[Rfam]
RNA sequence: UUUCCCAUUUUAGUACCAUGCAUCCUCUUCCCCACGGAUGUCUGGCUAUGCUAAUGGGACAGAGUGACCCUGUCAUAGUCUGAAGGGGAGGGUUGGUCCCUGUCCGUCUCUCCUACAUGAAAUGACAGCACAUUGCCUG
Numbered sequence: 001u002u003u004c005c006c007a008u009u010u011u012a013g014u015a016c017c018a019u020g021c022a023u024c025c026u027c028u029u030c031c032c033c034a035c036g037g038a039u040g041u042c043u044g045g046c047u048a049u050g051c052u053a054a055u056g057g058g059a060c061a062g063a064g065u066g067a068c069c070c071u072g073u074c075a076u077a078g079u080c081u082g083a084a085g086g087g088g089a090g091g092g093u094u095g096g097u098c099c100c101u102g103u104c105c106g107u108c109u110c111u112c113c114u115a116c117a118u119g120a121a122a123u124g125a126c127a128g129c130a131c132a133u134u135g136c137c138u139g
Stems, first nucleotide, its partner, number of pairs: 004058004016045003072126004089114004
The family of this 139-nucleotide RNA from Conger conger is "Small nucleolar RNA SNORA29". About the family: ACA29 is a member of the H/ACA class of snoRNA that guide the sites of modification of uridines to pseudouridines. Rfam 15.1 lists 960 matches to the family in 621 species. It is annotated as an H/ACA-box small nucleolar RNA.